[Rfam]
RNA sequence: CCGGACGCCAAAUCGGGUCCGGUUGGACAUCGAGAGCGCCGGCUCUUGGUUACCGGCGCAUCCCAUGCCCAAAUUGCUUCAUUGGAGGAUUUGGAAAUGAGAC
Dot-bracket structure: ((((((.((.....))))))))...........(.(((((((..........))))))).)(.(((..(((((((.(((.....))))))))))..))).)..